[Rfam]
RNA sequence: AUUAAAAUCAGACUGAUUUGGAAUGGAAAC
Dot-bracket structure: ............(((.(....).)))....
RNA: CRISPR RNA direct repeat element